[Rfam]
RNA sequence: GCAAAACCACAGCCAAGGGAACGGGCUUGGCAAAAUUAGCAGGGAAAGACGACCCUGUUGAGCUUGACUCUAGUCUGGCACUGUGAAGAGACAUGAGAGGUGUAGAAGAAGUGGGAGGCUUCGGCCGCCGGUGAAAUACCACUACUCUUAUCGGUUUUUUUACUUACCUGGUGAGGCGAGCCCUGAGAGGCUCUUGUUUUUGGUCGGAAGUGCCCGGGCGGCUGGGCGUGAGCUGCUCCGGGGACAGUGGCAGGUGGGGAGUUUGACUGGGGGGGUGGUACACCUGUCACACCUCGUGCCCCGUGGAGCAGAAAGGCAAAAGCUUGCAUGAUCUUGAUUUUCAGUACGAGUACAGACUGUGAAAGUGGGGCCUCACAAUCCUUCUGACCUUUUGGGUUUUGAGCAGGAGGUGUCAGAAAAGUUCCACAGGCUUGUGGCAGCCAAGCGUUCACAGCGACGUCGUUGUUUGAUCCUUCGAUGUCAGUUUUUCCUAUCAUUGUGAAGCAGAAUUCACCAAGCGUUGGACUGUUCACCCACUAAUAGGGAAUGUGAGCUGGGUUUAGACUGUCGUGAGACAGGUUAGUUUUACCCUACUGACGU
Numbered sequence: 001g002c003a004a005a006a007c008c009a010c011a012g013c014c015a016a017g018g019g020a021a022c023g024g025g026c027u028u029g030g031c032a033a034a035a036u037u038a039g040c041a042g043g044g045a046a047a048g049a050c051g052a053c054c055c056u057g058u059u060g061a062g063c064u065u066g067a068c069u070c071u072a073g074u075c076u077g078g079c080a081c082u083g084u085g086a087a088g089a090g091a092c093a094u095g096a097g098a099g100g101u102g103u104a105g106a107a108g109a110a111g112u113g114g115g116a117g118g119c120u121u122c123g124g125c126c127g128c129c130g131g132u133g134a135a136a137u138a139c140c141a142c143u144a145c146u147c148u149u150a151u152c153g154g155u156u157u158u159u160u161u162a163c164u165u166a167c168c169u170g171g172u173g174a175g176g177c178g179a180g181c182c183c184u185g186a187g188a189g190g191c192u193c194u195u196g197u198u199u200u201u202g203g204u205c206g207g208a209a210g211u212g213c214c215c216g217g218g219c220g221g222c223u224g225g226g227c228g229u230g231a232g233c234u235g236c237u238c239c240g241g242g243g244a245c246a247g248u249g250g251c252a253g254g255u256g257g258g259g260a261g262u263u264u265g266a267c268u269g270g271g272g273g274g275g276u277g278g279u280a281c282a283c284c285u286g287u288c289a290c291a292c293c294u295c296g297u298g299c300c301c302c303g304u305g306g307a308g309c310a311g312a313a314a315g316g317c318a319a320a321a322g323c324u325u326g327c328a329u330g331a332u333c334u335u336g337a338u339u340u341u342c343a344g345u346a347c348g349a350g351u352a353c354a355g356a357c358u359g360u361g362a363a364a365g366u367g368g369g370g371c372c373u374c375a376c377a378a379u380c381c382u383u384c385u386g387a388c389c390u391u392u393u394g395g396g397u398u399u400u401g402a403g404c405a406g407g408a409g410g411u412g413u414c415a416g417a418a419a420a421g422u423u424c425c426a427c428a429g430g431c432u433u434g435u436g437g438c439a440g441c442c443a444a445g446c447g448u449u450c451a452c453a454g455c456g457a458c459g460u461c462g463u464u465g466u467u468u469g470a471u472c473c474u475u476c477g478a479u480g481u482c483a484g485u486u487u488u489u490c491c492u493a494u495c496a497u498u499g500u501g502a503a504g505c506a507g508a509a510u511u512c513a514c515c516a517a518g519c520g521u522u523g524g525a526c527u528g529u530u531c532a533c534c535c536a537c538u539a540a541u542a543g544g545g546a547a548u549g550u551g552a553g554c555u556g557g558g559u560u561u562a563g564a565c566u567g568u569c570g571u572g573a574g575a576c577a578g579g580u581u582a583g584u585u586u587u588a589c590c591c592u593a594c595u596g597a598c599g600u
Base pairs, nucleotide, nucleotide: 013030014029015028016027017026033600036597037596038595039594042592043591044590046587047586055429056428057427059426060425061423062422063421064420065419067262068261069260070259074254075253076252077251079249080248083163084162085161086160087159088158089157090156091155092154093151094150095149096148097147098146099145110143111142112141113140114139117126118125167242168241169240170239171238177235178234185193186192187191210229211228212227213226214225215224216223265281266279267278268277288370295326296325298323299322301306308317309316332356333355334354337351338350339349340348358367359366360365381409382408383407384406385405386404389403390402391401430471432469434468435465436464437463438462440460441459445455446454482557483555484554485553486552487549488546489545490544491543492542495520499514500513501512502511503510522536523535524534563581564580565579566578567576568575569574
RNA: Eukaryotic large subunit ribosomal RNA, nucleotides 7225 to 7824